[Rfam]
Nucleotides: 097
Stems, first nucleotide, its partner, number of pairs: 007039006016031001018029003041051003
Number, partner (000 for none) and nucleotide at each position: 001000a002000u003000c004000a005000c006000a007039g008038g009037u010036g011035u012034c013000u014000g015000g016031c017000a018029u019028c020027u021000g022000a023000c024000c025000a026000g027020a028019g029018g030000c031016g032000a033000u034012g035011a036010c037009a038008u039007u040000u041051g042050u043049c044000a045000u046000a047000a048000c049043g050042g051041u052000g053000a054000a055000g056000c057000a058000g059000a060000g061000g062000u063000g064000u065000u066000u067000g068000a069000a070000g071000g072000u073000c074000c075000u076000c077000u078000u079000a080000c081000u082000c083000c084000a085000c086000c087000u088000a089000u090000a091000u092000a093000a094000a095000c096000a097000a

Annotation: The family of this 97-nucleotide RNA sequence from Citrobacter phage Chris1 is "isrI Hfq binding RNA". By type it is a small RNA.